[Rfam]
A member of the RNA family "mir-148/mir-152 microRNA precursor family" from Oncorhynchus tshawytscha, 74 nucleotides long.
Its family is annotated with miRNA-mediated post-transcriptional gene silencing and RISC complex in the Gene Ontology.
The family's consensus secondary structure was predicted with RNAalifold.
It scores 85 bits against the family's covariance model.

RNA sequence: CUUGGCCCAAGUUCUGUGAUACACUUAGGCUCUGAGUCUGUGGUAGUCAGUGCAUAACAGAACUUUGGCCCGGU
Numbered sequence: 001c002u003u004g005g006c007c008c009a010a011g012u013u014c015u016g017u018g019a020u021a022c023a024c025u026u027a028g029g030c031u032c033u034g035a036g037u038c039u040g041u042g043g044u045a046g047u048c049a050g051u052g053c054a055u056a057a058c059a060g061a062a063c064u065u066u067g068g069c070c071c072g073g074u
Base pairs, nucleotide, nucleotide: 004070005069006068007067009065010064011063012062013061014060015059016058022052023051024050025049028048029047030046031045